[Rfam]
RNA sequence: UGAGGUCCUUCGGUGGCCGCGGAUCCGCCCAAGGCGGAUCUGAGGAACUUCCGGGCUCCACAGGGCACGAUGGCGGAUAACGUCCGCCCAGGGCGACCUGAGAGACAGCGCAACAGAGAACAGACCGCCUGGCCGUAAGGCCAGGUAAGGGUGAAACGGCGGUGCAAGAGACCACCGGGCCCCUGGCAACAGUGGGUCGCAUGGCAAGCCUCAUCGGGAGCAAGGCCAAGCAGAAGGCAUCAAGAGCUGCCCGCUCAAGCCUUCGGGUAGGCUGCUAGAGCCUGGCGGCGACGCUAGGUCGAGAUGGAUGGCCAUCCGGGCGCUUCGGCGCACGACAGAACCCGGGGUAUGAGGGACCUCAACAC
Numbered sequence: 001u002g003a004g005g006u007c008c009u010u011c012g013g014u015g016g017c018c019g020c021g022g023a024u025c026c027g028c029c030c031a032a033g034g035c036g037g038a039u040c041u042g043a044g045g046a047a048c049u050u051c052c053g054g055g056c057u058c059c060a061c062a063g064g065g066c067a068c069g070a071u072g073g074c075g076g077a078u079a080a081c082g083u084c085c086g087c088c089c090a091g092g093g094c095g096a097c098c099u100g101a102g103a104g105a106c107a108g109c110g111c112a113a114c115a116g117a118g119a120a121c122a123g124a125c126c127g128c129c130u131g132g133c134c135g136u137a138a139g140g141c142c143a144g145g146u147a148a149g150g151g152u153g154a155a156a157c158g159g160c161g162g163u164g165c166a167a168g169a170g171a172c173c174a175c176c177g178g179g180c181c182c183c184u185g186g187c188a189a190c191a192g193u194g195g196g197u198c199g200c201a202u203g204g205c206a207a208g209c210c211u212c213a214u215c216g217g218g219a220g221c222a223a224g225g226c227c228a229a230g231c232a233g234a235a236g237g238c239a240u241c242a243a244g245a246g247c248u249g250c251c252c253g254c255u256c257a258a259g260c261c262u263u264c265g266g267g268u269a270g271g272c273u274g275c276u277a278g279a280g281c282c283u284g285g286c287g288g289c290g291a292c293g294c295u296a297g298g299u300c301g302a303g304a305u306g307g308a309u310g311g312c313c314a315u316c317c318g319g320g321c322g323c324u325u326c327g328g329c330g331c332a333c334g335a336c337a338g339a340a341c342c343c344g345g346g347g348u349a350u351g352a353g354g355g356a357c358c359u360c361a362a363c364a365c
Stems, first nucleotide, its partner, number of pairs: 001361010012316007020042009047348003051345005056220004063252004068216005073087005088102001089100004103211002108209002110205002125150002127146008158176002161173003177200001178198005183192003224273004233264006244256004280299008
RNA: Bacterial RNase P class A